About this RNA: The record is a 184-nucleotide sequence from Synechococcus sp. PCC 6312, which matches "6S / SsrS RNA" in Rfam. The family has 150 seed sequences and 5,006 matches in Rfam 15.1. Rfam classes the family as a non-coding RNA gene. Pairs were carried over by alignment from the consensus structure, which is taken from published work.

RNA sequence: GUUUGACUGCGGCGUUGGUGACUGCCAAUAUCGUUUUUUGAUCUAUAACUUAAAACAACGGGAGCCAAAUCCAUUGGUGGCGGUACACUGGUCUUAGUUGCCAGAAACUUUAAGCCGAUGCCAGCGUUCCCACCUGGUUCAUCCCAGGUCAUAAACUGCGGUAAAACGGCGUUGUGGUUAACCU
Numbered sequence: 001g002u003u004u005g006a007c008u009g010c011g012g013c014g015u016u017g018g019u020g021a022c023u024g025c026c027a028a029u030a031u032c033g034u035u036u037u038u039u040g041a042u043c044u045a046u047a048a049c050u051u052a053a054a055a056c057a058a059c060g061g062g063a064g065c066c067a068a069a070u071c072c073a074u075u076g077g078u079g080g081c082g083g084u085a086c087a088c089u090g091g092u093c094u095u096a097g098u099u100g101c102c103a104g105a106a107a108c109u110u111u112a113a114g115c116c117g118a119u120g121c122c123a124g125c126g127u128u129c130c131c132a133c134c135u136g137g138u139u140c141a142u143c144c145c146a147g148g149u150c151a152u153a154a155a156c157u158g159c160g161g162u163a164a165a166a167c168g169g170c171g172u173u174g175u176g177g178u179u180a181a182c183c184u
Stems, first nucleotide, its partner, number of pairs: 003181013018167002035155003039151006060131003064127002072120007083108002088104005
The organism belongs to Synechococcus, within Bacteria.